RNA sequence: GGGCGACAUCAGGAGUUGGGCCGCGGCCCGACGCCAACCUGCCUUUCCGGGCAAGGUGGCGCUCCCGCAAGGGAGGAUGUGGCCGUUCCGGCAACCAAGCGGAUCAUG
Numbered sequence: 001g002g003g004c005g006a007c008a009u010c011a012g013g014a015g016u017u018g019g020g021c022c023g024c025g026g027c028c029c030g031a032c033g034c035c036a037a038c039c040u041g042c043c044u045u046u047c048c049g050g051g052c053a054a055g056g057u058g059g060c061g062c063u064c065c066c067g068c069a070a071g072g073g074a075g076g077a078u079g080u081g082g083c084c085g086u087u088c089c090g091g092c093a094a095c096c097a098a099g100c101g102g103a104u105c106a107u108g
Base pairs, nucleotide, nucleotide: 006080007079008078009077010076015032017031018029019028020027021026033060034059035058038056039055040054041052042051043050046103047102048101049100082092083091084090085089